Notes: A member of the RNA family "MIR827_2 microRNA precursor family" from Anisodus acutangulus, 82 nucleotides long.
[Rfam]
RNA sequence: UUUGUUGAUGUUCAUCUAUUCAUAAUUCUGCAUAAUUUUUGCACCCUUAAAUAUGUCAUGGUUAGAUGAACAUCAACAAACA
Number, nucleotide and partner (000 for none) at each position: 001u080002u079003u078004g077005u076006u075007g074008a073009u072010g071011u070012u069013c068014a067015u066016c065017u064018a063019u000020u061021c060022a059023u058024a000025a000026u000027u000028c000029u000030g056031c055032a054033u053034a000035a052036u051037u050038u000039u000040u000041g046042c000043a000044c000045c000046c041047u000048u000049a000050a037051a036052u035053a033054u032055g031056u030057c000058a023059u022060g021061g020062u000063u018064a017065g016066a015067u014068g013069a012070a011071c010072a009073u008074c007075a006076a005077c004078a003079a002080a001081c000082a000
The family is grouped with related families in Rfam's "MIR827 microRNA precursor clan".